[Rfam]
RNA sequence: CUCCCCGAAAUGCAUUUAGGUGCAGCGUCGCGUGUUUCUUACCGGAGGUAGAGCACUGGAUGGUCUAGGGGGCCCACAAGCUUACCGAAAUCAACCAAACUCCGAAUGCCAGUAAGUGAGAGCGCGGCAGUGAGACUGUGGGGGCUAAGCUUCAUAGUCGAAAGGGAAACAGCCCAGAUCACCGGUUAAGGCCCCUAAGCGUGUGCUAAGUGGAAAAGGAUGUGGAGUCGCACAGACAGCCAGGAGGUUGGCUUAGAAGCAGCCACCCUUUAAAGAGUGCGUAAUAGCUCACUGGUCAAGUGGUUCCGCGCCGACAAUGUAGCGGGGCUCAAGCACACCGCCGAAACCGUGACAUUCGUGCAUGUGAUCGGCCGCUUAUGCGGUCCAGUCGCACGGAUGGGUAGGGGAGCGUCGUGUGGCGAGCGAAGCGGCGGGGUAACCCAGCCGUGGACGCCACACGAGUGAGAAU
Numbered sequence: 001c002u003c004c005c006c007g008a009a010a011u012g013c014a015u016u017u018a019g020g021u022g023c024a025g026c027g028u029c030g031c032g033u034g035u036u037u038c039u040u041a042c043c044g045g046a047g048g049u050a051g052a053g054c055a056c057u058g059g060a061u062g063g064u065c066u067a068g069g070g071g072g073c074c075c076a077c078a079a080g081c082u083u084a085c086c087g088a089a090a091u092c093a094a095c096c097a098a099a100c101u102c103c104g105a106a107u108g109c110c111a112g113u114a115a116g117u118g119a120g121a122g123c124g125c126g127g128c129a130g131u132g133a134g135a136c137u138g139u140g141g142g143g144g145c146u147a148a149g150c151u152u153c154a155u156a157g158u159c160g161a162a163a164g165g166g167a168a169a170c171a172g173c174c175c176a177g178a179u180c181a182c183c184g185g186u187u188a189a190g191g192c193c194c195c196u197a198a199g200c201g202u203g204u205g206c207u208a209a210g211u212g213g214a215a216a217a218g219g220a221u222g223u224g225g226a227g228u229c230g231c232a233c234a235g236a237c238a239g240c241c242a243g244g245a246g247g248u249u250g251g252c253u254u255a256g257a258a259g260c261a262g263c264c265a266c267c268c269u270u271u272a273a274a275g276a277g278u279g280c281g282u283a284a285u286a287g288c289u290c291a292c293u294g295g296u297c298a299a300g301u302g303g304u305u306c307c308g309c310g311c312c313g314a315c316a317a318u319g320u321a322g323c324g325g326g327g328c329u330c331a332a333g334c335a336c337a338c339c340g341c342c343g344a345a346a347c348c349g350u351g352a353c354a355u356u357c358g359u360g361c362a363u364g365u366g367a368u369c370g371g372c373c374g375c376u377u378a379u380g381c382g383g384u385c386c387a388g389u390c391g392c393a394c395g396g397a398u399g400g401g402u403a404g405g406g407g408a409g410c411g412u413c414g415u416g417u418g419g420c421g422a423g424c425g426a427a428g429c430g431g432c433g434g435g436g437u438a439a440c441c442c443a444g445c446c447g448u449g450g451a452c453g454c455c456a457c458a459c460g461a462g463u464g465a466g467a468a469u
Stems, first nucleotide, its partner, number of pairs: 001409006011024005026130001027128007036121001038116005044110002051103001052101002057097003061093004068086002070083004134159010164175003179352004184348003190342003199339001201338006218312002222309010239296005245269003250264003270274001275290001279288002353399008410464001412461010428448005433442003

Rfam assigns this 469-nucleotide part of an RNA from Nakamurella aerolata to the family "Bacterial large subunit ribosomal RNA". The organism belongs to Nakamurella, within Bacteria. The family has 102 seed sequences and 51,934 matches in Rfam 15.1. Pairs were carried over by alignment from the consensus structure, which is taken from published work. It scores 2846 bits against the family's covariance model.